[Rfam]
RNA sequence: UGAGUUGGUUGGGCAAUCGCGGGUUAAUUUAUUAACUCGAGGAAAGUCCGGGCUCCAACAGGGCAAGGUGCCGGAUAACGUCCGGGGGGCGCGAGCCCACGGCCAGUGCAGCAGAAAAUAAACCGCCAUCUUCGGAUGGUAAGGGUGAAAUGGUGCGGUAAGAGCGCACCGCGACUUUGGUAACAAAGGCGGCAUGGUAAACCCCACCUGGAGCAAGAUCAAAUAGGGAAACUAUAGGUGUGUGCCCACACUGUUUCCGGGUAGAUUGCUUGAGGCUGGCAGUAAUGUCAGACCCAGAUGAAUGAUUGCCACGUAUUUAUACGAACAGAACCCGGCUUACAGACCAACUCAUUUU
Numbered sequence: 001u002g003a004g005u006u007g008g009u010u011g012g013g014c015a016a017u018c019g020c021g022g023g024u025u026a027a028u029u030u031a032u033u034a035a036c037u038c039g040a041g042g043a044a045a046g047u048c049c050g051g052g053c054u055c056c057a058a059c060a061g062g063g064c065a066a067g068g069u070g071c072c073g074g075a076u077a078a079c080g081u082c083c084g085g086g087g088g089g090c091g092c093g094a095g096c097c098c099a100c101g102g103c104c105a106g107u108g109c110a111g112c113a114g115a116a117a118a119u120a121a122a123c124c125g126c127c128a129u130c131u132u133c134g135g136a137u138g139g140u141a142a143g144g145g146u147g148a149a150a151u152g153g154u155g156c157g158g159u160a161a162g163a164g165c166g167c168a169c170c171g172c173g174a175c176u177u178u179g180g181u182a183a184c185a186a187a188g189g190c191g192g193c194a195u196g197g198u199a200a201a202c203c204c205c206a207c208c209u210g211g212a213g214c215a216a217g218a219u220c221a222a223a224u225a226g227g228g229a230a231a232c233u234a235u236a237g238g239u240g241u242g243u244g245c246c247c248a249c250a251c252u253g254u255u256u257c258c259g260g261g262u263a264g265a266u267u268g269c270u271u272g273a274g275g276c277u278g279g280c281a282g283u284a285a286u287g288u289c290a291g292a293c294c295c296a297g298a299u300g301a302a303u304g305a306u307u308g309c310c311a312c313g314u315a316u317u318u319a320u321a322c323g324a325a326c327a328g329a330a331c332c333c334g335g336c337u338u339a340c341a342g343a344c345c346a347a348c349u350c351a352u353u354u355u
Stems, first nucleotide, its partner, number of pairs: 001351010011340001012310007020039008044338003048335005053213004062246003066209005071085005086100001087098004101204002106202002108198002123144002125140006152170006171193001172191002175188005217267004227258006238251005274293001276291006
Shown here is a 355-nucleotide RNA sequence from Marinicella litoralis, a member of the family "Bacterial RNase P class A". The match comes from Rfam's covariance-model search (348 bits). Taxonomically the source falls in Marinicella (Bacteria, Pseudomonadati, Pseudomonadota, Gammaproteobacteria). The family's RNA type in Rfam is ribozyme. Rfam describes the family as follows. Ribonuclease P (RNase P) is a ubiquitous endoribonuclease, found in archaea, bacteria and eukarya as well as chloroplasts and mitochondria.